[Rfam]
Rfam assigns this 180-nucleotide RNA sequence from Actinoplanes awajinensis to the family "c-di-AMP riboswitch aptamer (ydaO/yuaA leader)". The base pairs follow the family's consensus structure. The match comes from Rfam's covariance-model search (68 bits). From the family's description: This family represents a conserved RNA structure found upstream of the ydaO and yuaA genes in Bacillus subtilis and related genes in other bacteria.
RNA sequence: UGGCCGGAACGCCGAGUCCUGCCUGCUGGUCACGGUCAACAACACACAGGCAUGGAGCGGGGGACCCACAAGUUCUCCGGCGCGCUCCUCGGAGCGUGCCUCGGGGUGAAGCCGCACCUAGCGGCCGGGCUCCUCGGCCCGAACCCGACAGCUCACCUCGCAGGCGUGGAGGGAAAACUU
Numbered sequence: 001u002g003g004c005c006g007g008a009a010c011g012c013c014g015a016g017u018c019c020u021g022c023c024u025g026c027u028g029g030u031c032a033c034g035g036u037c038a039a040c041a042a043c044a045c046a047c048a049g050g051c052a053u054g055g056a057g058c059g060g061g062g063g064a065c066c067c068a069c070a071a072g073u074u075c076u077c078c079g080g081c082g083c084g085c086u087c088c089u090c091g092g093a094g095c096g097u098g099c100c101u102c103g104g105g106g107u108g109a110a111g112c113c114g115c116a117c118c119u120a121g122c123g124g125c126c127g128g129g130c131u132c133c134u135c136g137g138c139c140c141g142a143a144c145c146c147g148a149c150a151g152c153u154c155a156c157c158u159c160g161c162a163g164g165c166g167u168g169g170a171g172g173g174a175a176a177a178c179u180u
Stems, first nucleotide, its partner, number of pairs: 010166004017056003057161006067103001104146003112124004127140004